[Rfam]
Nucleotides: 102
Base pairs, nucleotide, nucleotide: 018088019087020086021085022084023083024082025081030048031047032046033045034044058078059077060076061075062074063073064072
Number, partner (000 for none) and nucleotide at each position: 001000a002000u003000u004000c005000a006000u007000a008000g009000c010000g011000g012000g013000a014000a015000g016000c017000u018088c019087c020086u021085u022084c023083g024082u025081a026000u027000a028000u029000c030048c031047u032046c033045g034044a035000u036000a037000a038000u039000a040000u041000g042000g043000u044034u045033c046032g047031a048030g049000a050000g051000u052000c053000u054000c055000u056000a057000c058078c059077g060076g061075g062074u063073u064072a065000c066000c067000g068000u069000a070000a071000a072064u073063a074062a075061c076060c077059c078058g079000a080000c081025u082024a083023u084022g085021a086020a087019g088018g089000c090000a091000g092000a093000a094000g095000u096000u097000a098000g099000u100000a101000g102000a

A member of the RNA family "Purine riboswitch aptamer" from Aeribacillus pallidus, 102 nucleotides long. The family's consensus secondary structure is taken from published work. It scores 87 bits against the family's covariance model. Rfam 15.1 lists 4,097 matches to the family in 1,411 species.